RNA sequence: UCGGCCUGCCGGUUCACGGCCCGCAGUCAGCGGGACGACCCGGCGGCA
Numbered sequence: 001u002c003g004g005c006c007u008g009c010c011g012g013u014u015c016a017c018g019g020c021c022c023g024c025a026g027u028c029a030g031c032g033g034g035a036c037g038a039c040c041c042g043g044c045g046g047c048a
Stems, first nucleotide, its partner, number of pairs: 004047001007046001009043004017037002020034005